[Rfam]
RNA sequence: GCAGGUACGGUGACAUGGUUCCAAGCACCAUCGCAGGGAAGAUCUUUGGUUCCAUCUGCUCUCUCAGCGGCGUGCUGGUGAUCGCCCUCCCAGUGCCGGUCAUCGUGUCCAAC
Numbered sequence: 001g002c003a004g005g006u007a008c009g010g011u012g013a014c015a016u017g018g019u020u021c022c023a024a025g026c027a028c029c030a031u032c033g034c035a036g037g038g039a040a041g042a043u044c045u046u047u048g049g050u051u052c053c054a055u056c057u058g059c060u061c062u063c064u065c066a067g068c069g070g071c072g073u074g075c076u077g078g079u080g081a082u083c084g085c086c087c088u089c090c091c092a093g094u095g096c097c098g099g100u101c102a103u104c105g106u107g108u109c110c111a112a113c
Stems, first nucleotide, its partner, number of pairs: 001113001004110002006107005012101003017096001020093001036076002039073001048062002